Nucleotides: 368
Base pairs, nucleotide, nucleotide: 004368005367006366007364008317009316010315011314012313013312014311016036017035018034019033020032021031041362042361043360045359046358047357048356049355050234051233052232053231054230055072056071057070058069059068060067078229079228080227082225083104084103085102086101087100088099105121106119107118108117109116110115122224123223125164126163127162128161133155134154135153136152140149141148142147170222171221172218173217174216187206188205189204191202192201193200194199238254239253240252258289259288260287261286262285263284264283290302291301292300293299294298319347320346321345322344323343324342325341326340327339328338329337330336
Number, partner (000 for none) and nucleotide at each position: 001000g002000u003000u004368u005367u006366c007364g008317g009316g010315u011314a012313a013312u014311c015000g016036c017035g018034g019033u020032c021031u022000g023000a024000c025000u026000u027000g028000a029000u030000c031021a032020g033019g034018c035017u036016g037000a038000g039000g040000a041362a042361a043360g044000u045359c046358c047357a048356u049355g050234c051233u052232c053231g054230c055072a056071c057070a058069g059068g060067c061000u062000g063000u064000g065000a066000u067060g068059c069058c070057u071056g072055u073000a074000g075000u076000g077000u078229u079228c080227g081000u082225g083104c084103u085102u086101a087100g088099c089000g090000a091000a092000a093000c094000c095000a096000u097000a098000a099088g100087c101086u102085a103084a104083g105121g106119u107118a108117c109116u110115c111000u112000u113000u114000g115110g116109a117108g118107u119106a120000a121105c122224g123223g124000c125164a126163g127162g128161a129000a130000a131000a132000c133155a134154a135153g136152c137000u138000a139000a140149g141148g142147c143000u144000u145000c146000g147142g148141c149140u150000a151000u152136g153135c154134u155133u156000a157000a158000g159000u160000a161128u162127c163126c164125u165000u166000g167000a168000a169000a170222g171221u172218g173217c174216c175000a176000c177000a178000g179000u180000g181000a182000c183000g184000a185000a186000g187206c188205g189204g190000c191202u192201g193200g194199g195000g196000a197000a198000a199194c200193c201192c202191a203000u204189c205188c206187g207000g208000u209000g210000g211000a212000a213000c214000g215000c216174g217173g218172u219000a220000a221171a222170c223123c224122c225082c226000u227080c228079g229078a230054g231053c232052g233051a234050g235000c236000a237000a238254c239253c240252c241000a242000a243000a244000c245000a246000a247000u248000g249000g250000u251000a252240g253239g254238g255000g256000c257000g258289c259288u260287u261286u262285u263284u264283g265000u266000c267000u268000g269000g270000a271000a272000g273000a274000a275000g276000a277000a278000c279000a280000g281000g282000a283264c284263a285262a286261a287260a288259a289258g290302g291301c292300a293299g294298u295000a296000u297000a298294a299293c300292u301291g302290c303000a304000g305000a306000u307000a308000g309000a310000u311014g312013g313012u314011u315010a316009c317008c318000g319347c320346u321345u322344u323343g324342u325341u326340u327339u328338u329337u330336c331000u332000c333000c334000c335000u336330g337329g338328a339327a340326a341325a342324g343323c344322a345321a346320a347319g348000u349000a350000c351000a352000g353000a354000a355049c356048a357047u358046g359045g360043c361042u362041u363000a364007u365000a366006g367005a368004a
Rfam assigns this 368-nucleotide RNA from Enterococcus faecium to the family "Bacterial RNase P class B". Rfam's curators put it in the seed alignment. The family's RNA type in Rfam is ribozyme. The literature on the family includes a 1999 paper in Nucleic Acids Res by Brown, "The Ribonuclease P Database". Ribonuclease P (RNase P) is a ubiquitous endoribonuclease, found in archaea, bacteria and eukarya as well as chloroplasts and mitochondria. Its best characterised activity is the generation of mature 5'-ends of tRNAs by cleaving the 5'-leader elements of precursor-tRNAs. Cellular RNase Ps are ribonucleoproteins. RNA from bacterial RNase Ps retains its catalytic activity in the absence of the protein subunit, i.e. it is a ribozyme. Rfam links the family to the GO terms ribonuclease P activity, dimeric ribonuclease P complex and tRNA processing. Its Rfam clan is "RNaseP clan".